A member of the RNA family "mir-14 microRNA precursor family" from Ladona fulva, 67 nucleotides long.
Rfam links the family to the GO terms RISC complex and miRNA-mediated post-transcriptional gene silencing.
On this family, see Skalsky et al., BMC Genomics 2010: "Identification of microRNAs expressed in two mosquito vectors, Aedes albopictus and Culex quinquefasciatus".
Pairs were carried over by alignment from the consensus structure, which was predicted with RNAalifold.
A search with the family's covariance model found it, with a score of 60 bits.
RNA sequence: CAUGGGGGAGAGAGAUAGGCUAGACUUUGCCUUAAGAACCUCAGUCAGUCUUUUUCUCUCUCCUAUG
Numbered sequence: 001c002a003u004g005g006g007g008g009a010g011a012g013a014g015a016u017a018g019g020c021u022a023g024a025c026u027u028u029g030c031c032u033u034a035a036g037a038a039c040c041u042c043a044g045u046c047a048g049u050c051u052u053u054u055u056c057u058c059u060c061u062c063c064u065a066u067g
Base pairs, nucleotide, nucleotide: 001067002066003065004064005063006062007061008060010058011057012056013055015053017051018050019049020048021047024045025044026043